About this RNA: The record is a 92-nucleotide RNA from Caldibacillus thermoamylovorans, which matches "pan motif" in Rfam. The family's consensus secondary structure is taken from published work.

RNA sequence: AGAACUGCACCUCUCCGGGCGGUAUCUAUCAUCUCAUCGGUUUUUUUAUAAUAGAAAAUCUGCCUGUAGCCGUAGAGGACCGGGACAGAGGG
Numbered sequence: 001a002g003a004a005c006u007g008c009a010c011c012u013c014u015c016c017g018g019g020c021g022g023u024a025u026c027u028a029u030c031a032u033c034u035c036a037u038c039g040g041u042u043u044u045u046u047u048a049u050a051a052u053a054g055a056a057a058a059u060c061u062g063c064c065u066g067u068a069g070c071c072g073u074a075g076a077g078g079a080c081c082g083g084g085a086c087a088g089a090g091g092g
Stems, first nucleotide, its partner, number of pairs: 001027003004023005010018002060088003063084004070078002